[Rfam]
RNA sequence: GGUUCGGGCGCGCGCCAGUGGGACGGUGCGCAGGUAUAGGACCGGUCGUCAUCCGACCCGGCGCUGCCGGCCUUCUCCCGGGGCCAGCGGC
Numbered sequence: 001g002g003u004u005c006g007g008g009c010g011c012g013c014g015c016c017a018g019u020g021g022g023a024c025g026g027u028g029c030g031c032a033g034g035u036a037u038a039g040g041a042c043c044g045g046u047c048g049u050c051a052u053c054c055g056a057c058c059c060g061g062c063g064c065u066g067c068c069g070g071c072c073u074u075c076u077c078c079c080g081g082g083g084c085c086a087g088c089g090g091c
Stems, first nucleotide, its partner, number of pairs: 001043005010031007063091005069085004

Rhodo-rpoB RNA: a 91-nucleotide RNA from Dinoroseobacter shibae.
It is annotated as a cis-regulatory element.
The organism belongs to Dinoroseobacter shibae, within Bacteria.
Rfam's curators put it in the seed alignment.